Rfam assigns this 139-nucleotide RNA sequence from Otolemur garnettii to the family "Small Cajal body specific RNA 21". The family has 24 seed sequences and 278 matches in Rfam 15.1. Rfam describes the family as follows. scaRNAs are a specific class of small nuclear RNAs which localise to the Cajal bodies and guide the modification of RNA polymerase II transcribed spliceosomal RNAs U1, U2, U4, U5 and U12. Taxonomically the source falls in Otolemur (Eukaryota, Amniota, Theria, Primates). Gene Ontology terms of the family: Cajal body, nucleolus and RNA processing.
Nucleotides: 139
Base pairs, nucleotide, nucleotide: 002056003055004054005053006052007051015044016043017042018041019040020039021038022037024035066133067132068131069130070129073126074125078120079119080118087112089110
Number, partner (000 for none) and nucleotide at each position: 001000u002056g003055g004054c005053u006052u007051g008000g009000u010000u011000u012000c013000c014000u015044g016043g017042g018041a019040g020039g021038u022037g023000a024035g025000c026000u027000c028000a029000g030000c031000a032000u033000a034000c035024c036000c037022c038021a039020u040019u041018u042017c043016c044015c045000u046000u047000c048000a049000g050000c051007c052006a053005a054004g055003c056002c057000u058000a059000g060000a061000u062000g063000a064000g065000a066133g067132a068131g069130g070129c071000c072000a073126g074125g075000c076000a077000u078120c079119c080118u081000c082000c083000c084000u085000g086000u087112g088000c089110a090000a091000g092000a093000g094000g095000c096000a097000u098000u099000c100000a101000a102000a103000u104000a105000a106000g107000g108000g109000g110089u111000c112087u113000c114000a115000c116000c117000u118080g119079g120078g121000c122000u123000a124000u125074c126073c127000a128000a129070g130069c131068c132067u133066c134000a135000c136000a137000u138000u139000a